[Rfam]
RNA sequence: GCUAACGGCAGUUGCUCCUUAAUAAGGAAAGACGGGUCGGGGCUGACAAAGACAGGUCAGUAAGUAGUACAGCGGUAAGUAACAAAUCCGCAAAUCGAAAUGAGCCAGGAAAACUGGAUGAUACG
Numbered sequence: 001g002c003u004a005a006c007g008g009c010a011g012u013u014g015c016u017c018c019u020u021a022a023u024a025a026g027g028a029a030a031g032a033c034g035g036g037u038c039g040g041g042g043c044u045g046a047c048a049a050a051g052a053c054a055g056g057u058c059a060g061u062a063a064g065u066a067g068u069a070c071a072g073c074g075g076u077a078a079g080u081a082a083c084a085a086a087u088c089c090g091c092a093a094a095u096c097g098a099a100a101u102g103a104g105c106c107a108g109g110a111a112a113a114c115u116g117g118a119u120g121a122u123a124c125g
Stems, first nucleotide, its partner, number of pairs: 006039004011033003042061006105117004